Shown here is a 586-nucleotide part of an RNA from Eleutherodactylus coqui, a member of the family "Eukaryotic large subunit ribosomal RNA".
It scores 2432 bits against the family's covariance model.

RNA sequence: CCCUCUGAAGUUUCCCUCAGGAUAGCUGGCGCUCUGCUCCUGAGCAGCUUUAUCCGGUAAAGCGAAUGAUUAGAGGUCUUGGGGCCGAAACGAUCUCAACCUAUACUCAAACUUUAAAUGGGUAAGAAGCCCGGCUCGCUGGCUUGGAGCCGGGGCUGCCCGUCAAAUGCGAGCGCCCAGUGGGCCACUUUUGGUAAGCAGAACUGGCGCUGCGGAAUGAACCGAACGCCGGGUUAAGGCGCCCGAUGCCGACGCUCAUCAGAUCCCAGAAAAGGUGUUGGUUGAUAUAGACAGCAGGACGGUGGCCAUGGAAGUCGAAAUCCACUAAGGAGUGUGUAACAACUCACCGGCCGAAUCAACUAGCCCUGAAAAUGGAUGGCACUGGAGCGUCGGGCCCAUACCCGGCCGUCGCCGGCAGUGAGUUGACGUGGCGCGGGCCAAGGGUGGGGAAGGGCUGGGAUCGUCCCGCGCCCCUCUCCCACCCCAGUUCCACCCGCUGAGCUAAGCCGCGAAGAGCAGGAGGGCUGCCGCGGCGGGUGCAGAAGCCCAGGGCGAGGGUCCGGGCGCAGCCGCCGCGGGUGCAGAU
Dot-bracket structure: ((((((....(.(((....))).)...((((((...............(((((((....(((....(((.((.(((..((((((.(.....).))))))))).)).)))..)).)....)))))))..(((((((((.........))))).))))...............))))))......((((.(((((.....))))).))))....(((......)))...(((((.(...(((......(.(...(((.................(((.((((((((((.......((.((..((....(.........)....)).(...)(...((......)).).)).))...)))))))))))))...................)))..)))))...).)))))(.((((.(((.........................................................................................))))))).)....)))))).(.((((((((.((......((....(((....)))...))...))))))))))..).....